[Rfam]
RNA sequence: UGUCCUUGGACCUGGGUAGAGUGGCACCUGGUUUGGUGAUACUUGUCUUAUAUCAGCCAGGGACAAAGGAACUCCUUUAUCCCAGCUUGGCUUUAGGCCUAUGCCCAUGCCUGGUUUAUGCCCUGGACAGGU
Numbered sequence: 001u002g003u004c005c006u007u008g009g010a011c012c013u014g015g016g017u018a019g020a021g022u023g024g025c026a027c028c029u030g031g032u033u034u035g036g037u038g039a040u041a042c043u044u045g046u047c048u049u050a051u052a053u054c055a056g057c058c059a060g061g062g063a064c065a066a067a068g069g070a071a072c073u074c075c076u077u078u079a080u081c082c083c084a085g086c087u088u089g090g091c092u093u094u095a096g097g098c099c100u101a102u103g104c105c106c107a108u109g110c111c112u113g114g115u116u117u118a119u120g121c122c123c124u125g126g127a128c129a130g131g132u
Stems, first nucleotide, its partner, number of pairs: 001065008012056004019049003023043002026040001028038001076127004089122003096117002099114003103110002
Shown here is a 132-nucleotide RNA from Pipistrellus kuhlii, a member of the family "Small nucleolar RNA SNORA48". The source organism's lineage runs through Eukaryota, Chordata, Euteleostomi, Yangochiroptera and Pipistrellus. Rfam classes the family as an H/ACA-box small nucleolar RNA. Rfam's curators write: The snoRNA ACA 48 has been identified to guide pseudouridylation of the residue U3797 in the 28S rRNA subunit. The family's consensus secondary structure was predicted with RNAalifold. A reference for the family is Ofengand and Bakin (1997), "Mapping to nucleotide resolution of pseudouridine residues in large subunit ribosomal RNAs from representative eukaryotes, prokaryotes, archaebacteria, mitochondria and chloroplasts", J Mol Biol. Gene Ontology terms of the family: RNA processing and nucleolus.